Source information: Rfam assigns this 61-nucleotide sequence from Trifolium medium to the family "Plastid-psbN 5UTR RNA". It is annotated as a cis-regulatory element. Taxonomically the source falls in Trifolium (Eukaryota, Magnoliopsida, eudicotyledons, Trifolieae). The family's consensus secondary structure was predicted with LocARNA. It scores 64 bits against the family's covariance model. Plastid psbN is a non-coding RNA (ncRNA) recognised in plastids. It was reported as a conserved 11 stem-loop in the prime untranslated region (5UTR) of psbN genes. It has been reported that the motif is retained in a subset of mature transcripts in barley, which can suggests a possible role in transcript alternative 5 prime processing. The family has 63 seed sequences and 2,345 matches in Rfam 15.1.
RNA sequence: UGCAAUCACCAUCAAAAGGGUGGUUCCCCACCCAUGAGCUACUUUGCCAUAUUUUGAAUUU
Numbered sequence: 001u002g003c004a005a006u007c008a009c010c011a012u013c014a015a016a017a018g019g020g021u022g023g024u025u026c027c028c029c030a031c032c033c034a035u036g037a038g039c040u041a042c043u044u045u046g047c048c049a050u051a052u053u054u055u056g057a058a059u060u061u
Stems, first nucleotide, its partner, number of pairs: 017045010